[Rfam]
A member of the RNA family "Group II catalytic intron D1-D4-4" from Acetohalobium arabaticum, 138 nucleotides long. A search with the family's covariance model found it, with a score of 98 bits. Gene Ontology term of the family: Group II intron splicing. Rfam 15.1 lists 840 matches to the family in 506 species. From the family's description: Group II introns are found in rRNA, tRNA and mRNA of organelles in fungi, plants and protists, and also in mRNA in bacteria. The pairing is the family consensus, mapped onto this sequence.
RNA sequence: CAAUGGGUGUAAGUCCUAUUAGAGUAAAAGUCAAAACUCUAUAGCUGAAUGGCAAUGUUGAUAGGAAACUUUGGACAUUGAAGUCCAUUAACAAAGGUACCUAUAGGGUAUCGAGCAAGUAUGCAGACCAUAACACCA
Numbered sequence: 001c002a003a004u005g006g007g008u009g010u011a012a013g014u015c016c017u018a019u020u021a022g023a024g025u026a027a028a029a030g031u032c033a034a035a036a037c038u039c040u041a042u043a044g045c046u047g048a049a050u051g052g053c054a055a056u057g058u059u060g061a062u063a064g065g066a067a068a069c070u071u072u073g074g075a076c077a078u079u080g081a082a083g084u085c086c087a088u089u090a091a092c093a094a095a096g097g098u099a100c101c102u103a104u105a106g107g108g109u110a111u112c113g114a115g116c117a118a119g120u121a122u123g124c125a126g127a128c129c130a131u132a133a134c135a136c137c138a
Base pairs, nucleotide, nucleotide: 020041021040022039023038024037048089049088050087051086052085053080054079055078056077057076058075063070064069096112097111098110099109100108101107115131